[Rfam]
RNA: Lysine riboswitch aptamer
RNA sequence: UCGUGAGGUAGAGGCGCGGUAUUUAUUAGUUUUUCAUUUAGUCAUGGAGCUGGCAUUGAGAUGGAGAAGAAGGAACUAUCGCCGAAGUGUUGUUAAUGCCCUUGUUAACAAUGCUGGGUCUGUAAUGAAUAAUUACAGAACUGUCUCAAUCAUCUAUCCCUGAUGGUUGAGUUGAGCUAUCUCAAUA
Numbered sequence: 001u002c003g004u005g006a007g008g009u010a011g012a013g014g015c016g017c018g019g020u021a022u023u024u025a026u027u028a029g030u031u032u033u034u035c036a037u038u039u040a041g042u043c044a045u046g047g048a049g050c051u052g053g054c055a056u057u058g059a060g061a062u063g064g065a066g067a068a069g070a071a072g073g074a075a076c077u078a079u080c081g082c083c084g085a086a087g088u089g090u091u092g093u094u095a096a097u098g099c100c101c102u103u104g105u106u107a108a109c110a111a112u113g114c115u116g117g118g119u120c121u122g123u124a125a126u127g128a129a130u131a132a133u134u135a136c137a138g139a140a141c142u143g144u145c146u147c148a149a150u151c152a153u154c155u156a157u158c159c160c161u162g163a164u165g166g167u168u169g170a171g172u173u174g175a176g177c178u179a180u181c182u183c184a185a186u187a
Stems, first nucleotide, its partner, number of pairs: 006182006016082006023075002031067008086115012116142002119139008145171009